[Rfam]
RNA sequence: AUCCAGGUAAAUCUCAGCUGGCAACUGUGAGUUUGAGCAUCUCACGGCGCCGGCUGAGGUUCACCUGAAC
Numbered sequence: 001a002u003c004c005a006g007g008u009a010a011a012u013c014u015c016a017g018c019u020g021g022c023a024a025c026u027g028u029g030a031g032u033u034u035g036a037g038c039a040u041c042u043c044a045c046g047g048c049g050c051c052g053g054c055u056g057a058g059g060u061u062c063a064c065c066u067g068a069a070c
Base pairs, nucleotide, nucleotide: 004067005066006065007064010061011060012059013058014057015056016055017054021051026046027045028044029043030042031041

Shown here is a 70-nucleotide RNA from Anabas testudineus, a member of the family "mir-216 microRNA precursor family".
The base pairs follow the family's consensus structure, which was predicted with WAR.